The family of this 390-nucleotide RNA from Kaistia hirudinis is "Bacterial RNase P class A".
The family's RNA type in Rfam is ribozyme.
The match comes from Rfam's covariance-model search (303 bits).
From the family's description: Ribonuclease P (RNase P) is a ubiquitous endoribonuclease, found in archaea, bacteria and eukarya as well as chloroplasts and mitochondria.
Pairs were carried over by alignment from the consensus structure, which is taken from published work.
Lineage of the source: Bacteria > Pseudomonadati > Alphaproteobacteria > Kaistiaceae > Kaistia.
RNA sequence: CCAGCUGGCCGGACGGCCGCUCCCGCAGGAUCGAAAGGUCGCGGGGGAGGAAAGUCCGGGCUCCAUGGAAACACGGUGCCGGGUAACGCCCGGCGGGGGUGACCCCAGGGAAAGUGCCACAGAGAGCAGACCGCCCGGCGUGCGCGCCGGGUAAGGGUGAAAGGGUGGGGUAAGAGCCCACCGCGCUGCCAGCAAUGGGAGCGGCAUGGCAAACCCCACCGGGAGCAAGACCGAAUAGGGGCGGCACGGACUUCGGUCCAGGCAUGUUUCCACGCCCGCCGCCCGGGUUGGUCGCGUGAGACGUCCAGCAAUGGUCGUCCAAGAUGAAUGGUCGUCACGCGGCGGGAGACCGCCGCCCUACAGAACCCGGCUUAUAGGCCGGCUGGCAAU
Numbered sequence: 001c002c003a004g005c006u007g008g009c010c011g012g013a014c015g016g017c018c019g020c021u022c023c024c025g026c027a028g029g030a031u032c033g034a035a036a037g038g039u040c041g042c043g044g045g046g047g048a049g050g051a052a053a054g055u056c057c058g059g060g061c062u063c064c065a066u067g068g069a070a071a072c073a074c075g076g077u078g079c080c081g082g083g084u085a086a087c088g089c090c091c092g093g094c095g096g097g098g099g100u101g102a103c104c105c106c107a108g109g110g111a112a113a114g115u116g117c118c119a120c121a122g123a124g125a126g127c128a129g130a131c132c133g134c135c136c137g138g139c140g141u142g143c144g145c146g147c148c149g150g151g152u153a154a155g156g157g158u159g160a161a162a163g164g165g166u167g168g169g170g171u172a173a174g175a176g177c178c179c180a181c182c183g184c185g186c187u188g189c190c191a192g193c194a195a196u197g198g199g200a201g202c203g204g205c206a207u208g209g210c211a212a213a214c215c216c217c218a219c220c221g222g223g224a225g226c227a228a229g230a231c232c233g234a235a236u237a238g239g240g241g242c243g244g245c246a247c248g249g250a251c252u253u254c255g256g257u258c259c260a261g262g263c264a265u266g267u268u269u270c271c272a273c274g275c276c277c278g279c280c281g282c283c284c285g286g287g288u289u290g291g292u293c294g295c296g297u298g299a300g301a302c303g304u305c306c307a308g309c310a311a312u313g314g315u316c317g318u319c320c321a322a323g324a325u326g327a328a329u330g331g332u333c334g335u336c337a338c339g340c341g342g343c344g345g346g347a348g349a350c351c352g353c354c355g356c357c358c359u360a361c362a363g364a365a366c367c368c369g370g371c372u373u374a375u376a377g378g379c380c381g382g383c384u385g386g387c388a389a390u
Stems, first nucleotide, its partner, number of pairs: 001386010011375001012336007020047007028039001052373003056370005061225004070269002074221005079093005094108001095106004109216002114214002116210003131156002133152008164182006183205001184203004189198003229293004239284006261276003265272001300319004305314003